[Rfam]
RNA: DUF3800-VII RNA
RNA sequence: CACAGGCAUGCGCGGGGUGAACCGUUGGCUGCCUUGACCGGCGGCAGCGAGCAAUCGUGAAACUCAACGGCCCGGGGCCUGUGCUUAA
Numbered sequence: 001c002a003c004a005g006g007c008a009u010g011c012g013c014g015g016g017g018u019g020a021a022c023c024g025u026u027g028g029c030u031g032c033c034u035u036g037a038c039c040g041g042c043g044g045c046a047g048c049g050a051g052c053a054a055u056c057g058u059g060a061a062a063c064u065c066a067a068c069g070g071c072c073c074g075g076g077g078c079c080u081g082u083g084c085u086u087a088a
Stems, first nucleotide, its partner, number of pairs: 001083007011075001013074004022070006028045006048057003